[Rfam]
Background: The record is a 132-nucleotide RNA sequence from Paenibacillus zeisoli, which matches "c-di-AMP riboswitch aptamer (ydaO/yuaA leader)" in Rfam. This family represents a conserved RNA structure found upstream of the ydaO and yuaA genes in Bacillus subtilis and related genes in other bacteria.

RNA sequence: AGCAAAUAAAGGCCGAAGCUUACUACAAGCACGGGGGACCCAUACACUGGGGUGAAGCCAUAAAUUUGGCAGGGUGAUUACUCUUUGACCCUAAUCCGUCAGCUAACCUCGCAGGCUGUUAAAAGGAGAAAU
Numbered sequence: 001a002g003c004a005a006a007u008a009a010a011g012g013c014c015g016a017a018g019c020u021u022a023c024u025a026c027a028a029g030c031a032c033g034g035g036g037g038a039c040c041c042a043u044a045c046a047c048u049g050g051g052g053u054g055a056a057g058c059c060a061u062a063a064a065u066u067u068g069g070c071a072g073g074g075u076g077a078u079u080a081c082u083c084u085u086u087g088a089c090c091c092u093a094a095u096c097c098g099u100c101a102g103c104u105a106a107c108c109u110c111g112c113a114g115g116c117u118g119u120u121a122a123a124a125g126g127a128g129a130a131a132u
Stems, first nucleotide, its partner, number of pairs: 011117004018030003032111005041049002050097003058069003072091004
Dot-bracket structure: ..........((((...(((.......))).(((((....((.....))(((.....(((......)))..((((............))))...))).........)))))..))))...............